[Rfam]
RNA: Rhizobiales sRNA Atu_C9
RNA sequence: GGUCAACGCAAGGAGGCAACAAUGGGACUUACGAAUUCCUUCAAUGUCCUUCUGGUCAGUGCAGCAUUUGUGUUCAUCGCAACCAUGCUUUUUAUCUAGGGGAAAGUCGCCGAUCCUUCCAAACGUCAGCGACUGACGACAGACCAGUCUUCGAGCACUCUUCGCAAGACACACACAUCAAGACAAACGCAUGGCGAUGGGAGUAUCGCCAUGCGUUUU
Number, nucleotide and partner (000 for none) at each position: 001g000002g000003u000004c000005a000006a000007c000008g000009c000010a000011a000012g000013g000014a000015g048016g047017c046018a045019a000020c000021a000022a000023u000024g040025g039026g038027a037028c000029u000030u000031a000032c000033g000034a000035a000036u000037u027038c026039c025040u024041u000042c000043a000044a000045u018046g017047u016048c015049c000050u000051u000052c000053u000054g000055g000056u000057c000058a000059g000060u000061g000062c000063a000064g000065c000066a000067u000068u000069u000070g000071u000072g000073u000074u000075c000076a000077u000078c000079g000080c000081a000082a000083c000084c000085a000086u000087g000088c000089u000090u000091u000092u000093u000094a000095u000096c000097u000098a000099g000100g000101g000102g000103a000104a000105a000106g000107u000108c000109g000110c000111c000112g000113a000114u000115c000116c000117u000118u000119c000120c000121a000122a000123a000124c000125g000126u000127c000128a000129g000130c000131g000132a000133c000134u000135g000136a000137c000138g000139a000140c000141a000142g000143a000144c000145c000146a000147g000148u000149c000150u000151u000152c000153g000154a000155g000156c000157a000158c000159u000160c000161u000162u000163c000164g000165c000166a000167a000168g000169a000170c000171a000172c000173a000174c000175a000176c000177a000178u000179c000180a000181a000182g000183a000184c000185a218186a217187a216188c215189g214190c213191a212192u211193g210194g209195c208196g207197a206198u205199g204200g000201g000202a000203g000204u199205a198206u197207c196208g195209c194210c193211a192212u191213g190214c189215g188216u187217u186218u185219u000